The record is a 71-nucleotide RNA sequence from Gnomoniopsis smithogilvyi, which matches "tRNA" in Rfam. Pairs were carried over by alignment from the consensus structure, which is taken from published work. Rfam links the family to the GO term triplet codon-amino acid adaptor activity. The family's RNA type in Rfam is transfer RNA.
RNA sequence: GCCUGGUUAGCAUAAAAGAAAUGCAAUUGUUUUGUAAUCAAUUGAAGGGGGCGCGAUACCCCCACUGGGCU
Numbered sequence: 001g002c003c004u005g006g007u008u009a010g011c012a013u014a015a016a017a018g019a020a021a022u023g024c025a026a027u028u029g030u031u032u033u034g035u036a037a038u039c040a041a042u043u044g045a046a047g048g049g050g051g052c053g054c055g056a057u058a059c060c061c062c063c064a065c066u067g068g069g070c071u
Stems, first nucleotide, its partner, number of pairs: 001070007010024004026042004047063005